[Rfam]
RNA sequence: GGAGUCGGACAGGUCGUCGUCGCGGGUCGCAAGACCCGGGGAGGAAAGUCCGGGCUUCACAGGGCAGGACGCUGGGUAACGCCCAGGGGGAGCGAUCUCCGGAGAGUGCCACAGAGAGCAGACCGCCCGCGUUCGCGCGGGUAAGGGUGAAACGGUGGGGUAAGAGCCCACCAGUUGCGGUGGUGACAUCGCAAGCUAGGAAAACCCCGUCCGAAGCAAGACCAAAUAGGGGAGCGCCAAGGUCGGCCCGACCGAUGCUCCCGGGUAGGUUGCUUGAGGGUGCAGGUAACUGCACUCCUAGAGGAAUGACGACCCCCCGCGAGGGGACAGAACCCGGCUUAUCGUCCGACUCCCACU
Dot-bracket structure: ((((((((((((((((((.((.((((((....)))))).))....[[[.[[[[[((((...[[[[.((((((((((.....)))))(((((....)))))((...((.((............(((((((((....)))))))..)).......((((((.......)))))).(((((((((....)))))))).)..))...)))))))))))))...((((......((((((.....((((.]]]]))))...)))))).....))))......((((((((....))))))))..........)))))))..................]]]]]]]].).))))))))))....